This 382-nucleotide RNA sequence from Heliobacterium mobile belongs to the Rfam family "Bacterial RNase P class B". Rfam classes the family as a ribozyme. Gene Ontology terms of the family: ribonuclease P activity, tRNA processing and dimeric ribonuclease P complex.

[Rfam]
RNA sequence: AACUCUAGGCAAUCGCUGCCGGGAUAAUCCCGGUAGAGGAAGUUCCAGGCUCGCACAUCCUGCGAUGGAUGUAGUGUUCGUGCCCGUUCGUAAUGGCGGGGCAGUCAGCUUUUUAGCAGACUGACGGCGGGGAAAGCAUCCUACAGCCAUCUUGGCCAUGGUGCAAAUACCCUGAAAGUGGAUAGAGACGAGUCGUCGGGGAAACUCGACGAGUGGAACGACUAAACCCCACGAGCGAGCAACUCAGUGUGUAGAGGCACCUGGCUGAGAGAAAUGAAUCGACGCUGGGACGAUCGCCAUAUGAUCGUAGAAAAAUGAUUGCCCCUUCUGUGGGAGGCUGGGAAGCCAAGAACCACAUUGGGACAGAACCUGGGCUAUCGGA
Numbered sequence: 001a002a003c004u005c006u007a008g009g010c011a012a013u014c015g016c017u018g019c020c021g022g023g024a025u026a027a028u029c030c031c032g033g034u035a036g037a038g039g040a041a042g043u044u045c046c047a048g049g050c051u052c053g054c055a056c057a058u059c060c061u062g063c064g065a066u067g068g069a070u071g072u073a074g075u076g077u078u079c080g081u082g083c084c085c086g087u088u089c090g091u092a093a094u095g096g097c098g099g100g101g102c103a104g105u106c107a108g109c110u111u112u113u114u115a116g117c118a119g120a121c122u123g124a125c126g127g128c129g130g131g132g133a134a135a136g137c138a139u140c141c142u143a144c145a146g147c148c149a150u151c152u153u154g155g156c157c158a159u160g161g162u163g164c165a166a167a168u169a170c171c172c173u174g175a176a177a178g179u180g181g182a183u184a185g186a187g188a189c190g191a192g193u194c195g196u197c198g199g200g201g202a203a204a205c206u207c208g209a210c211g212a213g214u215g216g217a218a219c220g221a222c223u224a225a226a227c228c229c230c231a232c233g234a235g236c237g238a239g240c241a242a243c244u245c246a247g248u249g250u251g252u253a254g255a256g257g258c259a260c261c262u263g264g265c266u267g268a269g270a271g272a273a274a275u276g277a278a279u280c281g282a283c284g285c286u287g288g289g290a291c292g293a294u295c296g297c298c299a300u301a302u303g304a305u306c307g308u309a310g311a312a313a314a315a316u317g318a319u320u321g322c323c324c325c326u327u328c329u330g331u332g333g334g335a336g337g338c339u340g341g342g343a344a345g346c347c348a349a350g351a352a353c354c355a356c357a358u359u360g361g362g363a364c365a366g367a368a369c370c371u372g373g374g375c376u377a378u379c380g381g382a
Base pairs, nucleotide, nucleotide: 004382005381006380007378008323009322010321011320012319013318014317016036017035018034019033020032021031041376042375043374045373046372047371048370049369050239051238052237053236054235055072056071057070058069059068060067078234079233080232081231082230083100084099085098086097087096088095101125102123103122104121105120106119126229127228129172130171131170137163138162140161141160146156147155148154149153178227179226180223181222193212194211195210196209197208198207199206200205243256244255245254260289261288262287263286264285265284290308291307292306293305294304295303325361326360329357330356331355332354333353